[Rfam]
SAM/SAH riboswitch aptamer: a 51-nucleotide RNA from Kangsaoukella pontilimi. A reference for the family is Weickhmann et al. (2019), "The structure of the SAM/SAH-binding riboswitch", Nucleic Acids Res. The organism belongs to Kangsaoukella, within Bacteria.

RNA sequence: AAACCGCUACAACGGCUUCCUGGCGUGGCGGGGUACUUUCUUAACGGAGCG
Number, nucleotide and partner (000 for none) at each position: 001a000002a000003a000004c032005c031006g029007c028008u027009a026010c025011a000012a000013c022014g021015g050016c049017u048018u000019c047020c046021u014022g013023g000024c000025g010026u009027g008028g007029c006030g000031g005032g004033g000034u000035a000036c000037u000038u000039u000040c000041u000042u000043a000044a000045c000046g020047g019048a017049g016050c015051g000